[Rfam]
RNA sequence: CGCCCGGCCGGAUCCCGUGGGGGGAAUCCGCACCGGGAACAUGGAAGCGCCCCGACCGUCGGC
Numbered sequence: 001c002g003c004c005c006g007g008c009c010g011g012a013u014c015c016c017g018u019g020g021g022g023g024g025a026a027u028c029c030g031c032a033c034c035g036g037g038a039a040c041a042u043g044g045a046a047g048c049g050c051c052c053c054g055a056c057c058g059u060c061g062g063c
Stems, first nucleotide, its partner, number of pairs: 001061002003037005009030005014024003043051002
RNA: Streptomyces RNA 2736